[Rfam]
RNA sequence: UUAAAAGUACAAGUAUGUCCCAUGCAGCAUUUGGGACAUACUUAUACUGAAA
Number, nucleotide and partner (000 for none) at each position: 001u000002u000003a000004a000005a000006a048007g047008u046009a045010c000011a043012a042013g000014u040015a039016u038017g000018u036019c035020c034021c033022a031023u000024g000025c000026a000027g000028c000029a000030u000031u022032u000033g021034g020035g019036a018037c000038a016039u015040a014041c000042u012043u011044a000045u009046a008047c007048u006049g000050a000051a000052a000
This 52-nucleotide sequence from Chlorocebus sabaeus belongs to the Rfam family "mir-1302 microRNA precursor family". The family's consensus secondary structure was predicted with WAR. It scores 63 bits against the family's covariance model. The literature on the family includes a 2008 paper in Genome Res by Morin et al., "Application of massively parallel sequencing to microRNA profiling and discovery in human embryonic stem cells". Rfam 15.1 lists 16,160 matches to the family in 135 species.